Nucleotides: 067
Stems, first nucleotide, its partner, number of pairs: 007061008019049007032042001034040001
Number, partner (000 for none) and nucleotide at each position: 001000a002000u003000g004000g005000g006000g007061u008060u009059u010058u011057a012056c013055c014054a015000u016000g017000u018000u019049g020048g021047u022046c023045a024044g025043g026000c027000u028000g029000g030000u031000c032042u033000c034040g035000a036000a037000c038000u039000c040034c041000a042032g043025c044024c045023u046022g047021g048020c049019c050000a051000a052000c053000a054014u055013g056012g057011u058010a059009a060008a061007a062000c063000c064000c065000c066000a067000u
This 67-nucleotide RNA from Pongo abelii belongs to the Rfam family "mir-1285 microRNA precursor family". The organism belongs to Pongo, within Eukaryota.